[Rfam]
RNA sequence: UAAAAUACAAUACUCCGAGUCAGUCAACCUAAGCUUUUAAGUAUGGUGUUCUGACCGAUAGGGUGCAUUGGGAAACUGGUGUGCCUCCCUUUGUGGAAAGGAGAGAAUUGCCUUGUUUU
Numbered sequence: 001u002a003a004a005a006u007a008c009a010a011u012a013c014u015c016c017g018a019g020u021c022a023g024u025c026a027a028c029c030u031a032a033g034c035u036u037u038u039a040a041g042u043a044u045g046g047u048g049u050u051c052u053g054a055c056c057g058a059u060a061g062g063g064u065g066c067a068u069u070g071g072g073a074a075a076c077u078g079g080u081g082u083g084c085c086u087c088c089c090u091u092u093g094u095g096g097a098a099a100g101g102a103g104a105g106a107a108u109u110g111c112c113u114u115g116u117u118u119u
Base pairs, nucleotide, nucleotide: 003113006110011105013103014102015101016100019055020054021053022052023051027047028046029045033042034041035040061086062085063084064083065082066081067080068079069078070077071076087096088095
A member of the RNA family "Molybdenum/Tungsten riboswitch aptamer (Moco RNA motif)" from Sporotomaculum syntrophicum, 119 nucleotides long. The match comes from Rfam's covariance-model search (74 bits). The family's consensus secondary structure is taken from published work.